[Rfam]
This 87-nucleotide RNA from Methyloprofundus sp. belongs to the Rfam family "c-di-GMP-I riboswitch aptamer".
The literature on the family includes a 2007 paper in Nucleic Acids Res by Weinberg et al., "Identification of 22 candidate structured RNAs in bacteria using the CMfinder comparative genomics pipeline".

RNA sequence: UUUUGCAAAAGGCAAAGCUACCUAAAGGUGGUGACGCAAAAUUCCCAGUCUAACGGAGAUUACUCUUAUGGCCGUGGGAUUACCAAA
Numbered sequence: 001u002u003u004u005g006c007a008a009a010a011g012g013c014a015a016a017g018c019u020a021c022c023u024a025a026a027g028g029u030g031g032u033g034a035c036g037c038a039a040a041a042u043u044c045c046c047a048g049u050c051u052a053a054c055g056g057a058g059a060u061u062a063c064u065c066u067u068a069u070g071g072c073c074g075u076g077g078g079a080u081u082a083c084c085a086a087a
Stems, first nucleotide, its partner, number of pairs: 012037002017032006040081004045077003048072003055066004